Description: This 186-nucleotide sequence from Paenibacillus sedimenti belongs to the Rfam family "c-di-AMP riboswitch aptamer (ydaO/yuaA leader)". Its family is annotated with regulation of gene expression and cyclic-di-AMP binding in the Gene Ontology. It scores 96 bits against the family's covariance model. NCBI's taxonomy places the organism under Bacteria, Bacillati, Bacillota, Bacilli, Paenibacillus.
[Rfam]
RNA sequence: UAUUCUAAUUCGCUGAGUUUUCCAAAAGGAAAAACGGGGGAACCAAGGUGAAUGACGAAUUUGGUCAACAUGCAGCCAAAUUUAUCAUUUACAUGGGGUGAAUCUGCAGAUAUGCAAACUGCAGUAGGGUGACUCUCGCCAUCCGAAUCCGGCAGCUAACCUCGUAAGCGUUGACUGAGAGAGGAU
Numbered sequence: 001u002a003u004u005c006u007a008a009u010u011c012g013c014u015g016a017g018u019u020u021u022c023c024a025a026a027a028g029g030a031a032a033a034a035c036g037g038g039g040g041a042a043c044c045a046a047g048g049u050g051a052a053u054g055a056c057g058a059a060u061u062u063g064g065u066c067a068a069c070a071u072g073c074a075g076c077c078a079a080a081u082u083u084a085u086c087a088u089u090u091a092c093a094u095g096g097g098g099u100g101a102a103u104c105u106g107c108a109g110a111u112a113u114g115c116a117a118a119c120u121g122c123a124g125u126a127g128g129g130u131g132a133c134u135c136u137c138g139c140c141a142u143c144c145g146a147a148u149c150c151g152g153c154a155g156c157u158a159a160c161c162u163c164g165u166a167a168g169c170g171u172u173g174a175c176u177g178a179g180a181g182a183g184g185a186u
Stems, first nucleotide, its partner, number of pairs: 011170004018033005034165006044095002096150003104124006127144004